[Rfam]
RNA sequence: CUGUCUAGCGGGAAACUGUAGCAAUAGCGAAUAGACAGAAGUCAGCCGACGUCAUAGUAGUGUGCAUCGCGCAUGAAGGAC
Numbered sequence: 001c002u003g004u005c006u007a008g009c010g011g012g013a014a015a016c017u018g019u020a021g022c023a024a025u026a027g028c029g030a031a032u033a034g035a036c037a038g039a040a041g042u043c044a045g046c047c048g049a050c051g052u053c054a055u056a057g058u059a060g061u062g063u064g065c066a067u068c069g070c071g072c073a074u075g076a077a078g079g080a081c
Base pairs, nucleotide, nucleotide: 001029004023006021008019009018010017011016041050042049043048051081052080053079060074061073062072063071064070065069
Notes
The record is an 81-nucleotide RNA from Dolosigranulum pigrum, which matches "Group II catalytic intron D1-D4-1" in Rfam. Rfam 15.1 lists 2,508 matches to the family in 1,144 species. Group II introns are found in rRNA, tRNA and mRNA of organelles in fungi, plants and protists, and also in mRNA in bacteria. Rfam links the family to the GO term Group II intron splicing.